[Rfam]
RNA: SAM riboswitch aptamer (S box leader)
RNA sequence: GGCUUAUAGAGAAAGACGGAGGGAUUAGACCCUACGAAGUCUUGGCAACCUGUGCUUACAAGGUGCUAAAUUCUACUGGAACUGAACCAUUAGUUCCGGAAAGAUAAGUU
Numbered sequence: 001g002g003c004u005u006a007u008a009g010a011g012a013a014a015g016a017c018g019g020a021g022g023g024a025u026u027a028g029a030c031c032c033u034a035c036g037a038a039g040u041c042u043u044g045g046c047a048a049c050c051u052g053u054g055c056u057u058a059c060a061a062g063g064u065g066c067u068a069a070a071u072u073c074u075a076c077u078g079g080a081a082c083u084g085a086a087c088c089a090u091u092a093g094u095u096c097c098g099g100a101a102a103g104a105u106a107a108g109u110u
Stems, first nucleotide, its partner, number of pairs: 001110007013043005021032003026075004044067004049063002051060003071102001076099009